[Rfam]
RNA sequence: AGUAGGAGAAAGGCAAACGCGAAGCGUUUCUCCCAUGCCUUUCGACGACCUGCCGCCGAAGGGAAGCGAGGGGGCGUUACCGCAG
Numbered sequence: 001a002g003u004a005g006g007a008g009a010a011a012g013g014c015a016a017a018c019g020c021g022a023a024g025c026g027u028u029u030c031u032c033c034c035a036u037g038c039c040u041u042u043c044g045a046c047g048a049c050c051u052g053c054c055g056c057c058g059a060a061g062g063g064a065a066g067c068g069a070g071g072g073g074g075c076g077u078u079a080c081c082g083c084a085g
Stems, first nucleotide, its partner, number of pairs: 008043006016028004052075003056071002

Record summary: The family of this 85-nucleotide RNA from Eubacterium sp. 14-2 is "GA-cis RNA". It scores 59 bits against the family's covariance model.